About this RNA:
Clostridiales-1 RNA: a 169-nucleotide sequence from Roseburia zhanii. It scores 124 bits against the family's covariance model. Lineage of the source: Bacteria > Bacillati > Lachnospirales > Lachnospiraceae > Roseburia. The base pairs follow the family's consensus structure, which is taken from published work.
[Rfam]
RNA sequence: UGAUACAAGGGUUAACAAGUCAGAAAUCGUUCCUGCUUGCAGGAUAAGAUUUCUGACUUGUUGACACGCUCACACAUGAGGAAGUAGCAAUUUUCCUUGGAAAAUCUGCGGAUUCCGAAUGUGUGUAGAAUUGUGGGAGUUGCGUAGCAACGGAACAAUUCGUGUAUCA
Numbered sequence: 001u002g003a004u005a006c007a008a009g010g011g012u013u014a015a016c017a018a019g020u021c022a023g024a025a026a027u028c029g030u031u032c033c034u035g036c037u038u039g040c041a042g043g044a045u046a047a048g049a050u051u052u053c054u055g056a057c058u059u060g061u062u063g064a065c066a067c068g069c070u071c072a073c074a075c076a077u078g079a080g081g082a083a084g085u086a087g088c089a090a091u092u093u094u095c096c097u098u099g100g101a102a103a104a105u106c107u108g109c110g111g112a113u114u115c116c117g118a119a120u121g122u123g124u125g126u127a128g129a130a131u132u133g134u135g136g137g138a139g140u141u142g143c144g145u146a147g148c149a150a151c152g153g154a155a156c157a158a159u160u161c162g163u164g165u166a167u168c169a
Stems, first nucleotide, its partner, number of pairs: 001169007011065003016060013030046001031044005071125007080116004087109003092104002128161007139151004